RNA: Bacterial small subunit ribosomal RNA, nucleotides 933 to 1521
RNA sequence: UGACGGGGGCCCGCACAAGCGGUGGAGUAUGUGGUUUAAUUCGAUGCAACGCGAAGAACCUUACCUGGUCUUGACAUCCCGAAGACCUCCCGGAAACAGGAGGGUGCUCUCUUUGAGAGAAUUCGGUGACAGGUGCUGCAUGGCUGUCGUCAGCUCGUGUCGUGAGAUGUUGGGUUAAGUCCCGCAACGAGCGCAACCCUCGCCAUUAGUUGCCAGCAUUAAGUUGGGCACUCUAAUGGGACUGCCGGUGUCAAACCGGAGGAAGGCGGGGAUGACGUCAAGUCCUCAUGGCCUUUAUGACCAGGGCUACACACGUACUACAAUGGCCGGUACAACGGGCAGCCACUUCGCGAGAAGGCGCAAAUCCCUGAAAGCCGGUCUCAGUCCGGAUUGGAGUCUGCAACUCGACUCCAUGAAGUUGGAAUCGCUAGUAAUCGUGGAUCAGCAUGCCGCGGUGAAUACGUUCCCGGGCCUUGUACACACCGCCCGUCACACCACGGGAGUCGGUUGUACCAGAAGCGGUUGAGCCAACCUUCGGGAGGCAGGCCGCCAAGGUAUGGCUGGUAACUGGGGUGAAGUCGUAACAAGG
Numbered sequence: 001u002g003a004c005g006g007g008g009g010c011c012c013g014c015a016c017a018a019g020c021g022g023u024g025g026a027g028u029a030u031g032u033g034g035u036u037u038a039a040u041u042c043g044a045u046g047c048a049a050c051g052c053g054a055a056g057a058a059c060c061u062u063a064c065c066u067g068g069u070c071u072u073g074a075c076a077u078c079c080c081g082a083a084g085a086c087c088u089c090c091c092g093g094a095a096a097c098a099g100g101a102g103g104g105u106g107c108u109c110u111c112u113u114u115g116a117g118a119g120a121a122u123u124c125g126g127u128g129a130c131a132g133g134u135g136c137u138g139c140a141u142g143g144c145u146g147u148c149g150u151c152a153g154c155u156c157g158u159g160u161c162g163u164g165a166g167a168u169g170u171u172g173g174g175u176u177a178a179g180u181c182c183c184g185c186a187a188c189g190a191g192c193g194c195a196a197c198c199c200u201c202g203c204c205a206u207u208a209g210u211u212g213c214c215a216g217c218a219u220u221a222a223g224u225u226g227g228g229c230a231c232u233c234u235a236a237u238g239g240g241a242c243u244g245c246c247g248g249u250g251u252c253a254a255a256c257c258g259g260a261g262g263a264a265g266g267c268g269g270g271g272a273u274g275a276c277g278u279c280a281a282g283u284c285c286u287c288a289u290g291g292c293c294u295u296u297a298u299g300a301c302c303a304g305g306g307c308u309a310c311a312c313a314c315g316u317a318c319u320a321c322a323a324u325g326g327c328c329g330g331u332a333c334a335a336c337g338g339g340c341a342g343c344c345a346c347u348u349c350g351c352g353a354g355a356a357g358g359c360g361c362a363a364a365u366c367c368c369u370g371a372a373a374g375c376c377g378g379u380c381u382c383a384g385u386c387c388g389g390a391u392u393g394g395a396g397u398c399u400g401c402a403a404c405u406c407g408a409c410u411c412c413a414u415g416a417a418g419u420u421g422g423a424a425u426c427g428c429u430a431g432u433a434a435u436c437g438u439g440g441a442u443c444a445g446c447a448u449g450c451c452g453c454g455g456u457g458a459a460u461a462c463g464u465u466c467c468c469g470g471g472c473c474u475u476g477u478a479c480a481c482a483c484c485g486c487c488c489g490u491c492a493c494a495c496c497a498c499g500g501g502a503g504u505c506g507g508u509u510g511u512a513c514c515a516g517a518a519g520c521g522g523u524u525g526a527g528c529c530a531a532c533c534u535u536c537g538g539g540a541g542g543c544a545g546g547c548c549g550c551c552a553a554g555g556u557a558u559g560g561c562u563g564g565u566a567a568c569u570g571g572g573g574u575g576a577a578g579u580c581g582u583a584a585c586a587a588g589g
Stems, first nucleotide, its partner, number of pairs: 001480002003477003007474007015464002019428005024321001026319008034310002040055004064305007077129002079126005086103005092097001105121001107119004132294002135292004141288002143283003146279001148277002153192006159168003171184004198271004203239007213228002217226002242262002245259005325380007337368003342361002347356003387418001392413007434456007483588001485585001488581002493575004498570003503565012519550006527543003532539002